[Rfam]
RNA sequence: UUUCGAUAAUGGCAUACUUGUUGAAAGACAAGGACGCAAAGCCACGGGCCUAAGGAGGAUUGUACUCUAAGGUAGCCGGGUUACCGAA
Numbered sequence: 001u002u003u004c005g006a007u008a009a010u011g012g013c014a015u016a017c018u019u020g021u022u023g024a025a026a027g028a029c030a031a032g033g034a035c036g037c038a039a040a041g042c043c044a045c046g047g048g049c050c051u052a053a054g055g056a057g058g059a060u061u062g063u064a065c066u067c068u069a070a071g072g073u074a075g076c077c078g079g080g081u082u083a084c085c086g087a088a
Stems, first nucleotide, its partner, number of pairs: 012037002017032006040082004045078003048073003055067003